[Rfam]
RNA sequence: CUGGUUCUUGUUUCAACAGUGUUUGGAUGGAACAG
Numbered sequence: 001c002u003g004g005u006u007c008u009u010g011u012u013u014c015a016a017c018a019g020u021g022u023u024u025g026g027a028u029g030g031a032a033c034a035g
Stems, first nucleotide, its partner, number of pairs: 001035003005032004010028001012027005017021001
Dot-bracket structure: (((.((((.(.((((((...).)))))))))))))

The record is a 35-nucleotide RNA from Chrysochloris asiatica, which matches "Iron response element I" in Rfam.
The base pairs follow the family's consensus structure, which is taken from published work.
Rfam classes the family as a cis-regulatory element.